[Rfam]
RNA sequence: CCGCGUGCGGCUGAUGACAGCACUCCUGCUGAGACUCUGUGAUUGCUGUGUCUCAAACGCCCUGACGCACUGGGA
Numbered sequence: 001c002c003g004c005g006u007g008c009g010g011c012u013g014a015u016g017a018c019a020g021c022a023c024u025c026c027u028g029c030u031g032a033g034a035c036u037c038u039g040u041g042a043u044u045g046c047u048g049u050g051u052c053u054c055a056a057a058c059g060c061c062c063u064g065a066c067g068c069a070c071u072g073g074g075a
Stems, first nucleotide, its partner, number of pairs: 005070005010021004029050001032047002
Small nucleolar RNA U105B: a 75-nucleotide RNA from Macaca mulatta. Rfam classes the family as a C/D-box small nucleolar RNA. Lineage of the source: Eukaryota > Craniata > Dipnotetrapodomorpha > Cercopithecinae > Macaca. Its Rfam clan is "SNORD105 clan". A reference for the family is Yang et al. (2006), "snoSeeker: an advanced computational package for screening of guide and orphan snoRNA genes in the human genome", Nucleic Acids Res. The family's consensus secondary structure was predicted with WAR.